Background:
A member of the RNA family "mir-221 microRNA precursor family" from Sus scrofa, 70 nucleotides long. Rfam 15.1 lists 1,797 matches to the family in 643 species. Lineage of the source: Eukaryota > Bilateria > Teleostomi > Artiodactyla > Sus. A reference for the family is Yao et al. (2008), "MicroRNA profile of Marek's disease virus-transformed T-cell line MSB-1: predominance of virus-encoded microRNAs", J Virol.

RNA sequence: UGAACCUGGCAUACAAUGUAGAUUUCUGUGUUUGUUGGGCAACAGCUACAUUGUCUGCUGGGUUUCAGGC
Numbered sequence: 001u002g003a004a005c006c007u008g009g010c011a012u013a014c015a016a017u018g019u020a021g022a023u024u025u026c027u028g029u030g031u032u033u034g035u036u037g038g039g040c041a042a043c044a045g046c047u048a049c050a051u052u053g054u055c056u057g058c059u060g061g062g063u064u065u066c067a068g069g070c
Stems, first nucleotide, its partner, number of pairs: 006061006013054009026045004